Small nucleolar RNA SNORA26: a 123-nucleotide RNA from Corvus moneduloides. The family is grouped with related families in Rfam's "SNORA27 clan". Pairs were carried over by alignment from the consensus structure, which was predicted with RNAalifold. Rfam's curators write: The snoRNA HBI-6 belong to the H/ACA family of snoRNAs, guiding the pseudouridylation of position U4522 if the 28S rRNA. HBI-6 is the human orthologue of mouse MBI-6 snoRNA. The source organism's lineage runs through Eukaryota, Dipnotetrapodomorpha, Archosauria, Australaves and Corvus. Rfam links the family to the GO terms RNA processing and nucleolus. It scores 41 bits against the family's covariance model.

RNA sequence: UUGCCCUCUCGGAGCUUGGCGGUGCUCCGGAGAGUCAACACAGGGGGAUAGAGCGGCUCUCCCUCACUAAAACCCAGUGCGGAGUCCUCCCCUCCGCCCUGCAUCCUGUCGUGAGGCACAAGU
Numbered sequence: 001u002u003g004c005c006c007u008c009u010c011g012g013a014g015c016u017u018g019g020c021g022g023u024g025c026u027c028c029g030g031a032g033a034g035u036c037a038a039c040a041c042a043g044g045g046g047g048a049u050a051g052a053g054c055g056g057c058u059c060u061c062c063c064u065c066a067c068u069a070a071a072a073c074c075c076a077g078u079g080c081g082g083a084g085u086c087c088u089c090c091c092c093u094c095c096g097c098c099c100u101g102c103a104u105c106c107u108g109u110c111g112u113g114a115g116g117c118a119c120a121a122g123u
Stems, first nucleotide, its partner, number of pairs: 002050002005047005014039001016037001018035001020032001063115005075101003079097002082094003